[Rfam]
The family of this 37-nucleotide sequence from Kouleothrix aurantiaca is "CRISPR RNA direct repeat element".
RNA sequence: CUCCGCACCAAUGCCCCGCGAUGAAGGGGUUUGAAAC
Numbered sequence: 001c002u003c004c005g006c007a008c009c010a011a012u013g014c015c016c017c018g019c020g021a022u023g024a025a026g027g028g029g030u031u032u033g034a035a036a037c
Base pairs, nucleotide, nucleotide: 012033013032014029015028016027017026
Annotation: A search with the family's covariance model found it, with a score of 42 bits. The source organism's lineage runs through Bacteria, Bacillati, Chloroflexota, Chloroflexia and Kouleothrix.